permuted transfer-messenger RNA: a 279-nucleotide RNA from Caedimonas varicaedens. NCBI's taxonomy places the organism under Bacteria, Pseudomonadati, Pseudomonadota, Alphaproteobacteria, Caedimonas. Rfam describes the family as follows. Bacterial tmRNA, also known as 10Sa RNA or SsrA, is named for its dual tRNA and mRNA-like properties.
RNA sequence: GGCGAUAAACGCCUUGCGCAAUAGGUGAAACGGACCCGGGGGCGGUACCCGGCGCCUCCACCAGUUUUGUUUCGAAAUUAGAGAGAGAUUCCAGAGUGUUUUUCUGGAUCUUUUUGUUUUUCUUCUGGGGGCGAAAUAGGAUCGACGUGCAUUGAAAGGCUUGGUUUUUGCUCGGCAUUGUUCCGUCGUUACAGGGCUAUAAACAUAAAAGCAAACGAUAACUUGUUUGCCGCGAAUAACAACGUUGAGAUCACCGGCGCGACUGCUGCCGCUGCUUAA
Numbered sequence: 001g002g003c004g005a006u007a008a009a010c011g012c013c014u015u016g017c018g019c020a021a022u023a024g025g026u027g028a029a030a031c032g033g034a035c036c037c038g039g040g041g042g043c044g045g046u047a048c049c050c051g052g053c054g055c056c057u058c059c060a061c062c063a064g065u066u067u068u069g070u071u072u073c074g075a076a077a078u079u080a081g082a083g084a085g086a087g088a089u090u091c092c093a094g095a096g097u098g099u100u101u102u103u104c105u106g107g108a109u110c111u112u113u114u115u116g117u118u119u120u121u122c123u124u125c126u127g128g129g130g131g132c133g134a135a136a137u138a139g140g141a142u143c144g145a146c147g148u149g150c151a152u153u154g155a156a157a158g159g160c161u162u163g164g165u166u167u168u169u170g171c172u173c174g175g176c177a178u179u180g181u182u183c184c185g186u187c188g189u190u191a192c193a194g195g196g197c198u199a200u201a202a203a204c205a206u207a208a209a210a211g212c213a214a215a216c217g218a219u220a221a222c223u224u225g226u227u228u229g230c231c232g233c234g235a236a237u238a239a240c241a242a243c244g245u246u247g248a249g250a251u252c253a254c255c256g257g258c259g260c261g262a263c264u265g266c267u268g269c270c271g272c273u274g275c276u277u278a279a
Stems, first nucleotide, its partner, number of pairs: 001172005016160002026151002030148003036052005053133007173188004

The family's RNA type in Rfam is non-coding RNA gene. A search with the family's covariance model found it, with a score of 143 bits.